[Rfam]
RNA sequence: CGAACCUUCUUAAGCCGAGGUUCAUUUAACCAACUGACGUUGUUAGUGAAUAAACAUUGUUCACCAUUAUGCCAUAAGUCUUCAUAUAGGAUGACUUAUGGCUUUUUUAUA
Numbered sequence: 001c002g003a004a005c006c007u008u009c010u011u012a013a014g015c016c017g018a019g020g021u022u023c024a025u026u027u028a029a030c031c032a033a034c035u036g037a038c039g040u041u042g043u044u045a046g047u048g049a050a051u052a053a054a055c056a057u058u059g060u061u062c063a064c065c066a067u068u069a070u071g072c073c074a075u076a077a078g079u080c081u082u083c084a085u086a087u088a089g090g091a092u093g094a095c096u097u098a099u100g101g102c103u104u105u106u107u108u109a110u111a
Base pairs, nucleotide, nucleotide: 002023003022004021005020006019040069042067043066046064047063048062049061050060051059052058072101073100074099075098076097077096078095079094
Source information
Qrr RNA: a 111-nucleotide RNA from Vibrio sp. 10N.286.49.B3. On this family, see Lenz et al., Cell 2004: "The Small RNA Chaperone Hfq and Multiple Small RNAs Control Quorum Sensing in Vibrio harveyi and Vibrio cholerae". It scores 75 bits against the family's covariance model. The family's RNA type in Rfam is small RNA. This family represents a set of small RNAs (the Qrr RNAs) that are thought to be involved in the regulation of quorum sensing in Vibrio species. It is believed that these RNAs, guided by a protein, Hfq, can mediate the destabilisation of the quorum-sensing master regulators LuxR/HapR mRNAs. The family's consensus secondary structure is taken from published work.